[Rfam]
RNA sequence: CUCGCCAUUGUACCUGUCUUGUAACACAGUGACUAGUACGGUCCGGAGGUGAGCUGACAGAAAAUGCCAACUUAGGAAAAAGAGUUAUUCUUCUCGUGGGUAACUUUGUGCCGAAGUCUGGGAACAGGG
Dot-bracket structure: ....((.(((.......((.(((......)).).)).......))).))...............(.(.(((((.((....(((((..(((.......)))..)))))...)).)))).)).).......

A member of the RNA family "Small nucleolar RNA SNORA65" from Tauraco erythrolophus, 129 nucleotides long. Rfam 15.1 lists 1,089 matches to the family in 619 species. For this family Rfam cites "RNomics: an experimental approach that identifies 201 candidates for novel, small, non-messenger RNAs in mouse" (Huttenhofer et al., EMBO J, 2001). Rfam describes the family as follows. U65 belongs to the H/ACA class of snoRNAs which are thought to guide the sites of modification of uridines to pseudouridines. By type it is an H/ACA-box small nucleolar RNA. The base pairs follow the family's consensus structure, which was predicted with RNAalifold. Clan: SNORA65 clan. Its family is annotated with nucleolus and RNA processing in the Gene Ontology.